[Rfam]
RNA sequence: UAUUGAACUUUGAUGAGGAUUAUUAGUUUGGAAUCAACCAUUCAGAGAGCCGGCGGUUGCUGCAAGCCGGUUGGAGAUGACAAAUGAACUCGCCUCGGAGUUAUGAUGCAAACCGGCCUUUGGCCGCAGCACCGGAUCAUACCGGACUGAAUGUGUAACAUCAUCGUCUUACCUGCGUUAAAGGUGUAAAGGGAGCGGAAGGCAAAGCAUGUCUGACGCUAACUAGGGUGGUACCACGGGAAACUUCCUCUCGUCCCUAGC
Numbered sequence: 001u002a003u004u005g006a007a008c009u010u011u012g013a014u015g016a017g018g019a020u021u022a023u024u025a026g027u028u029u030g031g032a033a034u035c036a037a038c039c040a041u042u043c044a045g046a047g048a049g050c051c052g053g054c055g056g057u058u059g060c061u062g063c064a065a066g067c068c069g070g071u072u073g074g075a076g077a078u079g080a081c082a083a084a085u086g087a088a089c090u091c092g093c094c095u096c097g098g099a100g101u102u103a104u105g106a107u108g109c110a111a112a113c114c115g116g117c118c119u120u121u122g123g124c125c126g127c128a129g130c131a132c133c134g135g136a137u138c139a140u141a142c143c144g145g146a147c148u149g150a151a152u153g154u155g156u157a158a159c160a161u162c163a164u165c166g167u168c169u170u171a172c173c174u175g176c177g178u179u180a181a182a183g184g185u186g187u188a189a190a191g192g193g194a195g196c197g198g199a200a201g202g203c204a205a206a207g208c209a210u211g212u213c214u215g216a217c218g219c220u221a222a223c224u225a226g227g228g229u230g231g232u233a234c235c236a237c238g239g240g241a242a243a244c245u246u247c248c249u250c251u252c253g254u255c256c257c258u259a260g261c
Base pairs, nucleotide, nucleotide: 007101008100015096016095017094018093026085027084028083029082030081038074039073040072049071050070051069052068053067054066104163105162106161107160108159165177166176167175194220195219196218197217200214201213202212203211204210225258226257227256228255236254237253238252239251240250
RNA: T-box leader
Organism: Fontibacillus panacisegetis